[Rfam]
RNA: Plasmodium RNA of unknown function RUF2
Organism: Plasmodium gonderi
RNA sequence: CAUAUUGAACGAUUCGAAGAGUUAUUAUUAUAAUUAUAUUUUUUAAAAAUAUUCCCAAAAAAUACUAACUUCAAUUUUGUUCAUAUAACAAAUGUAUAUACGGUGGCUUUUUAAAUUCAACAUUUUAGAAAUGUCAAUCCAUAUAUAUCACAGAGAA
Numbered sequence: 001c002a003u004a005u006u007g008a009a010c011g012a013u014u015c016g017a018a019g020a021g022u023u024a025u026u027a028u029u030a031u032a033a034u035u036a037u038a039u040u041u042u043u044u045a046a047a048a049a050u051a052u053u054c055c056c057a058a059a060a061a062a063u064a065c066u067a068a069c070u071u072c073a074a075u076u077u078u079g080u081u082c083a084u085a086u087a088a089c090a091a092a093u094g095u096a097u098a099u100a101c102g103g104u105g106g107c108u109u110u111u112u113a114a115a116u117u118c119a120a121c122a123u124u125u126u127a128g129a130a131a132u133g134u135c136a137a138u139c140c141a142u143a144u145a146u147a148u149c150a151c152a153g154a155g156a157a
Stems, first nucleotide, its partner, number of pairs: 006083006021069004026064004036052005094148007102140002104136004108131008